RNA sequence: AACCUUGUCCCGCGGAACGGAUUCCCACGAAUUACCCAGGGACGAGGACGGGGGACCCACGUCCCCAGCGGACACCGGAAGGCAAGCACCAGGCCUUCCUUGGGGUGAAGCCGGAAUCGCAUCGAUCACGACGCGAUAACGGCCGGGCGACCUCUCAGCCCGAACCCGACAGCUGACCUCGCAGGCGCGUGCGGAGAGGAACC
Numbered sequence: 001a002a003c004c005u006u007g008u009c010c011c012g013c014g015g016a017a018c019g020g021a022u023u024c025c026c027a028c029g030a031a032u033u034a035c036c037c038a039g040g041g042a043c044g045a046g047g048a049c050g051g052g053g054g055a056c057c058c059a060c061g062u063c064c065c066c067a068g069c070g071g072a073c074a075c076c077g078g079a080a081g082g083c084a085a086g087c088a089c090c091a092g093g094c095c096u097u098c099c100u101u102g103g104g105g106u107g108a109a110g111c112c113g114g115a116a117u118c119g120c121a122u123c124g125a126u127c128a129c130g131a132c133g134c135g136a137u138a139a140c141g142g143c144c145g146g147g148c149g150a151c152c153u154c155u156c157a158g159c160c161c162g163a164a165c166c167c168g169a170c171a172g173c174u175g176a177c178c179u180c181g182c183a184g185g186c187g188c189g190u191g192c193g194g195a196g197a198g199g200a201a202c203c
Stems, first nucleotide, its partner, number of pairs: 003047009049181005058102002103167003111142003145161004
A member of the RNA family "c-di-AMP riboswitch aptamer (ydaO/yuaA leader)" from Rhodococcus spelaei, 203 nucleotides long. About the family: This family represents a conserved RNA structure found upstream of the ydaO and yuaA genes in Bacillus subtilis and related genes in other bacteria. The source organism's lineage runs through Bacteria, Actinomycetota, Mycobacteriales, Nocardiaceae and Rhodococcus.